[Rfam]
A member of the RNA family "SAM (S-adenosyl methionine) riboswitch aptamer" from Arthrobacter pigmenti, 129 nucleotides long.
RNA sequence: GGUCACGAGUGACAGUACGGCGCGUUGCGCCGCCAGCCCCGGCUUGCUGUCCGGCAACCCUCCUUCGCGGUGGGGUGCCCCGGGUGACGACCAGGCGAUGCACGAACGGUGCAGGCGCAAGCGCGAUUU
Numbered sequence: 001g002g003u004c005a006c007g008a009g010u011g012a013c014a015g016u017a018c019g020g021c022g023c024g025u026u027g028c029g030c031c032g033c034c035a036g037c038c039c040c041g042g043c044u045u046g047c048u049g050u051c052c053g054g055c056a057a058c059c060c061u062c063c064u065u066c067g068c069g070g071u072g073g074g075g076u077g078c079c080c081c082g083g084g085u086g087a088c089g090a091c092c093a094g095g096c097g098a099u100g101c102a103c104g105a106a107c108g109g110u111g112c113a114g115g116c117g118c119a120a121g122c123g124c125g126a127u128u129u
Stems, first nucleotide, its partner, number of pairs: 001092004009052001011051006035044002053079003058075003062070002095118003099113005